A member of the RNA family "Purine riboswitch aptamer" from Butyrivibrio sp. INlla14, 102 nucleotides long. The source organism's lineage runs through Bacteria, Bacillati, Bacillota, Lachnospirales and Butyrivibrio.

RNA sequence: AAUAUAAGCGAGUAUUUUAUCGAUAUAGGUCAAAUAAUAUGGAUUUGAUGUUUCUACCCGGUUACCGUAAAUUACCGGACUAUCGAGUGUUUGAUGCUGCAU
Numbered sequence: 001a002a003u004a005u006a007a008g009c010g011a012g013u014a015u016u017u018u019a020u021c022g023a024u025a026u027a028g029g030u031c032a033a034a035u036a037a038u039a040u041g042g043a044u045u046u047g048a049u050g051u052u053u054c055u056a057c058c059c060g061g062u063u064a065c066c067g068u069a070a071a072u073u074a075c076c077g078g079a080c081u082a083u084c085g086a087g088u089g090u091u092u093g094a095u096g097c098u099g100c101a102u
Stems, first nucleotide, its partner, number of pairs: 020086006029049007058078005064072001